Shown here is a 473-nucleotide sequence from Rhodomicrobium vannielii, a member of the family "Bacterial RNase P class A". Taxonomically the source falls in Rhodomicrobium vannielii (Bacteria, Pseudomonadota, Alphaproteobacteria, Rhodomicrobium). Pairs were carried over by alignment from the consensus structure, which is taken from published work. The family's RNA type in Rfam is ribozyme. From the family's description: Ribonuclease P (RNase P) is a ubiquitous endoribonuclease, found in archaea, bacteria and eukarya as well as chloroplasts and mitochondria.
[Rfam]
RNA sequence: CCAGUUGGCCGGAUGGCCGCUGUUCGCACGUUCCUUGUGGGCCGAAAGGUCGUGAACGCGCGGAUGGAGGAAAGUCCGGGCUCCACGGAAACACGGCGCCGGAUAACGUCCGGCGGGGGCAACCCCAGGGACAGUGCCACAGAAAGCAAACCGCUUUAUCGUGGGCCUAUCGCGCUCUGCGCAGCUUGAGGCCGUUCGGCUUCAGGCUCGGGCCUUCGAUACAGUAAGGGUGAAAGGGUGCGGUAAGAGCGCACCGCGCGGCUGGCAACAGACGCGGCAAGGUAAACCCCGCCGGGAGCAAAACCGAAUAGGGACGGCACGGCUCGCGGGCUUCGGCUCGCGGCGGAAUGCGUUUCCGCAUCGCCGUCCGGGUUGGUUGCUUGAGGCGCGCGGCAACACGCGUCCCAGAUGAAUGGCCAUCGCGGCGGAGCAAUCCGCCGGCACAGAACCCGGCUUACAGGCCAACUGGCACU
Number, nucleotide and partner (000 for none) at each position: 001c469002c468003a467004g466005u465006u464007g463008g462009c461010c460011g458012g421013a420014u419015g418016g417017c416018c415019g000020c067021u066022g065023u064024u063025c062026g061027c060028a000029c000030g000031u000032u000033c000034c000035u000036u000037g000038u000039g000040g000041g000042c000043c000044g000045a000046a000047a000048g000049g000050u000051c000052g000053u000054g000055a000056a000057c000058g000059c000060g027061c026062g025063g024064a023065u022066g021067g020068a000069g000070g000071a000072a456073a455074g454075u000076c453077c452078g451079g450080g449081c298082u297083c296084c295085a000086c000087g000088g000089a000090a355091a354092c000093a000094c294095g293096g292097c291098g290099c113100c112101g111102g110103a109104u000105a000106a000107c000108g000109u103110c102111c101112g100113g099114c128115g126116g125117g124118g123119g000120c000121a000122a000123c118124c117125c116126c115127a000128g114129g289130g288131a000132c000133a000134g287135u286136g283137c282138c281139a000140c000141a000142g000143a000144a000145a000146g000147c000148a000149a000150a000151c229152c228153g225154c224155u223156u000157u221158a220159u219160c218161g217162u000163g000164g000165g000166c000167c000168u000169a000170u000171c000172g000173c000174g000175c000176u000177c000178u000179g000180c000181g000182c000183a000184g000185c000186u000187u000188g000189a000190g000191g000192c000193c000194g000195u000196u000197c000198g000199g000200c000201u000202u000203c000204a000205g000206g000207c000208u000209c000210g000211g000212g000213c000214c000215u000216u000217c161218g160219a159220u158221a157222c000223a155224g154225u153226a000227a000228g152229g151230g000231u000232g000233a000234a000235a000236g000237g255238g254239u253240g252241c251242g250243g000244u000245a000246a000247g000248a000249g000250c242251g241252c240253a239254c238255c237256g278257c276258g275259c274260g273261g000262c271263u270264g269265g000266c000267a000268a000269c264270a263271g262272a000273c260274g259275c258276g257277g000278c256279a000280a000281g138282g137283u136284a000285a000286a135287c134288c130289c129290c098291g097292c096293c095294g094295g084296g083297a082298g081299c000300a000301a000302a378303a377304c376305c375306g000307a000308a000309u000310a000311g000312g369313g368314a367315c366316g365317g364318c000319a000320c000321g000322g000323c000324u000325c000326g000327c000328g000329g000330g000331c000332u000333u000334c000335g000336g000337c000338u000339c000340g000341c000342g000343g000344c000345g000346g000347a000348a361349u360350g359351c358352g000353u000354u091355u090356c000357c000358g351359c350360a349361u348362c000363g000364c317365c316366g315367u314368c313369c312370g000371g000372g000373u000374u000375g305376g304377u303378u302379g000380c000381u000382u000383g000384a000385g404386g403387c402388g401389c400390g399391c000392g397393g000394c000395a000396a000397c392398a000399c390400g389401c388402g387403u386404c385405c000406c000407a000408g000409a000410u000411g000412a000413a000414u000415g018416g017417c016418c015419a014420u013421c012422g000423c000424g000425g000426c000427g000428g000429a000430g000431c000432a000433a000434u000435c000436c000437g000438c000439c000440g000441g000442c000443a000444c000445a000446g000447a000448a000449c080450c079451c078452g077453g076454c074455u073456u072457a000458c011459a000460g010461g009462c008463c007464a006465a005466c004467u003468g002469g001470c000471a000472c000473u000